[Rfam]
RNA: SAM-I/IV (S-adenosyl methionine) riboswitch aptamer
RNA sequence: UAAAUGCAUAGAGAGAGGAUUUCCUCAGCAACCUAGUUGCCAACUAAGGUGCUUUUUGAUGUGGUUAUACAACAAAAAAUGGCUUUC
Number, nucleotide and partner (000 for none) at each position: 001u000002a000003a000004a000005u000006g062007c061008a060009u059010a000011g000012a000013g000014a000015g026016a025017g024018g023019a000020u000021u000022u000023c018024c017025u016026c015027a053028g052029c051030a000031a000032c049033c048034u047035a045036g044037u043038u000039g084040c000041c082042a000043a037044c036045u035046a000047a034048g033049g032050u000051g029052c028053u027054u000055u000056u000057u000058g000059a009060u008061g007062u006063g000064g073065u072066u071067a000068u000069a000070c000071a066072a065073c064074a000075a000076a000077a000078a000079a000080u000081g000082g041083c000084u039085u000086u000087c000